[Rfam]
RNA: ybhL leader
Organism: Martelella endophytica
RNA sequence: CAGGCUUGCUGGAGCCCCCCAGCGGCGCCUGGGCGUUCGCCGGAUGGUGACGUGCCCGACACCGUGAACAACGAGGGGCUUUU
Numbered sequence: 001c002a003g004g005c006u007u008g009c010u011g012g013a014g015c016c017c018c019c020c021a022g023c024g025g026c027g028c029c030u031g032g033g034c035g036u037u038c039g040c041c042g043g044a045u046g047g048u049g050a051c052g053u054g055c056c057c058g059a060c061a062c063c064g065u066g067a068a069c070a071a072c073g074a075g076g077g078g079c080u081u082u083u
Stems, first nucleotide, its partner, number of pairs: 012081007023064003030058007